This 123-nucleotide RNA from Amygdalobacter nucleatus belongs to the Rfam family "FMN riboswitch aptamer (RFN element)".
It scores 112 bits against the family's covariance model.
The source organism's lineage runs through Bacteria, Bacillati, Clostridia, Oscillospiraceae and Amygdalobacter.

RNA sequence: AAGUGUUUUCAGGGAAUGGUGAAAAUCCUUACCGGUGGUGAUAGUCCACGAGUUAGCUUAAUUGCUUACAGAUUCGGUGCAAUUCCGAAACCGACAGUAAAGUCUGGAUGGGAGAAAACGUUU
Numbered sequence: 001a002a003g004u005g006u007u008u009u010c011a012g013g014g015a016a017u018g019g020u021g022a023a024a025a026u027c028c029u030u031a032c033c034g035g036u037g038g039u040g041a042u043a044g045u046c047c048a049c050g051a052g053u054u055a056g057c058u059u060a061a062u063u064g065c066u067u068a069c070a071g072a073u074u075c076g077g078u079g080c081a082a083u084u085c086c087g088a089a090a091c092c093g094a095c096a097g098u099a100a101a102g103u104c105u106g107g108a109u110g111g112g113a114g115a116a117a118a119c120g121u122u123u
Stems, first nucleotide, its partner, number of pairs: 003121008018028002031103002033093002035049004044091002052069002073089005095106003